[Rfam]
A member of the RNA family "small nucleolar RNA snoR114" from Gossypium gossypioides, 87 nucleotides long.
RNA sequence: GAGCAAUGAAGAAAACUGCGCACCCUUGUGAUGAUGGGGUUCAUCUCUUUCUCUGAUCUAACGAUGAGAAACUGCGCUCCUGAGCUC
Numbered sequence: 001g002a003g004c005a006a007u008g009a010a011g012a013a014a015a016c017u018g019c020g021c022a023c024c025c026u027u028g029u030g031a032u033g034a035u036g037g038g039g040u041u042c043a044u045c046u047c048u049u050u051c052u053c054u055g056a057u058c059u060a061a062c063g064a065u066g067a068g069a070a071a072c073u074g075c076g077c078u079c080c081u082g083a084g085c086u087c
Stems, first nucleotide, its partner, number of pairs: 001087004

The literature on the family includes a 2009 paper in Nucleic Acids Res by Chen and Wu, "Mining small RNA sequencing data: a new approach to identify small nucleolar RNAs in Arabidopsis".
The organism belongs to Gossypium, within Eukaryota.
The family's consensus secondary structure was predicted with RNAalifold.